[Rfam]
RNA: Small nucleolar RNA SNORA25
Organism: Carlito syrichta
RNA sequence: AGGUCAUGUCAAAGAUGGCUUACAUGUCUGUGAAACCAGAAGCUCUUAUGAUCAAAGACUGAAGUUCUUCACAGGAUGCCAUAGUCACCCAAUAGUGCUGUUUUCCUAAGGUGAUAUAAGA
Numbered sequence: 001a002g003g004u005c006a007u008g009u010c011a012a013a014g015a016u017g018g019c020u021u022a023c024a025u026g027u028c029u030g031u032g033a034a035a036c037c038a039g040a041a042g043c044u045c046u047u048a049u050g051a052u053c054a055a056a057g058a059c060u061g062a063a064g065u066u067c068u069u070c071a072c073a074g075g076a077u078g079c080c081a082u083a084g085u086c087a088c089c090c091a092a093u094a095g096u097g098c099u100g101u102u103u104u105c106c107u108a109a110g111g112u113g114a115u116a117u118a119a120g121a
Stems, first nucleotide, its partner, number of pairs: 002053006014047002017044005023039001026037001066114002069111002073107004081101004086097003
Dot-bracket structure: .((((((......((.(((((.(..(..........).)))))).))))))))............((.((..((((....((((.(((......)))))))..))))..)).)).......